[Rfam]
RNA: MIR8024 microRNA precursor family
Organism: Solanum lycopersicum
RNA sequence: UUGAAAAAUUUGAAGAGUUCAACUUACAUACUUGAAGAAUUUAAAGAUUUCAACUUGUAUGCUUGGAGAUUUUGAAGACUUUAUCU
Dot-bracket structure: .((((...((((((...((((...((((...((((((..........))))))..))))....))))...))))))...))))...